[Rfam]
RNA sequence: GGGGACGUUAUGGAUUCGACGGGGGUAGGUCGGUCGUAUGUGGCGUGUCGAGGGGUCGGCCUCGUUAAAACGCAAACGCCUAUAACUGGCAAAACUAACACACAACUCGCAGCAGCCUAAGUGCCCUGCGGAUCCUGACAUCCAUCGCUUGUGUGGAUGAUUAUCAGGGUCUCAAACUAAGCAAGCUACGCUUCAACCUCGCCGUCUGAGGGCGCGAAGAAGAGAUGAAUCAGACUGGAUGCGACAACGCCUGUUUAUCGGCAGUGUCACAUUGAGAUUCAAUAGAUAAACUACACACGUAGAAGCAUGCGUUACGAUGCCUUCGGACGCGGGUUCGACUCCCGCCGUCUCCAUUU
Numbered sequence: 001g002g003g004g005a006c007g008u009u010a011u012g013g014a015u016u017c018g019a020c021g022g023g024g025g026u027a028g029g030u031c032g033g034u035c036g037u038a039u040g041u042g043g044c045g046u047g048u049c050g051a052g053g054g055g056u057c058g059g060c061c062u063c064g065u066u067a068a069a070a071c072g073c074a075a076a077c078g079c080c081u082a083u084a085a086c087u088g089g090c091a092a093a094a095c096u097a098a099c100a101c102a103c104a105a106c107u108c109g110c111a112g113c114a115g116c117c118u119a120a121g122u123g124c125c126c127u128g129c130g131g132a133u134c135c136u137g138a139c140a141u142c143c144a145u146c147g148c149u150u151g152u153g154u155g156g157a158u159g160a161u162u163a164u165c166a167g168g169g170u171c172u173c174a175a176a177c178u179a180a181g182c183a184a185g186c187u188a189c190g191c192u193u194c195a196a197c198c199u200c201g202c203c204g205u206c207u208g209a210g211g212g213c214g215c216g217a218a219g220a221a222g223a224g225a226u227g228a229a230u231c232a233g234a235c236u237g238g239a240u241g242c243g244a245c246a247a248c249g250c251c252u253g254u255u256u257a258u259c260g261g262c263a264g265u266g267u268c269a270c271a272u273u274g275a276g277a278u279u280c281a282a283u284a285g286a287u288a289a290a291c292u293a294c295a296c297a298c299g300u301a302g303a304a305g306c307a308u309g310c311g312u313u314a315c316g317a318u319g320c321c322u323u324c325g326g327a328c329g330c331g332g333g334u335u336c337g338a339c340u341c342c343c344g345c346c347g348u349c350u351c352c353a354u355u356u
Base pairs, nucleotide, nucleotide: 001352002351003350004349005348006347007346020325021324022323023322024321025320026319027318033313035311036310037309038308039307040306041305044299045298046297047296048295049064050063051062052061053060056075058073108130109129110128111127112126115124116123131171132170133169134168135167136166137161139159140158142156143155144154145153147186148185149184150183151182152181191219192218193217194216198212199211204235205234206233207232208231238273239272240271241270243268244267245266246265249262250261251260253291254290255289256288258284329345330344331343332342333341

Rfam assigns this 356-nucleotide RNA from Exiguobacterium chiriqhucha to the family "transfer-messenger RNA". The family's RNA type in Rfam is non-coding RNA gene. Pairs were carried over by alignment from the consensus structure, which is taken from published work. The organism belongs to Exiguobacterium chiriqhucha, within Bacteria. A search with the family's covariance model found it, with a score of 191 bits.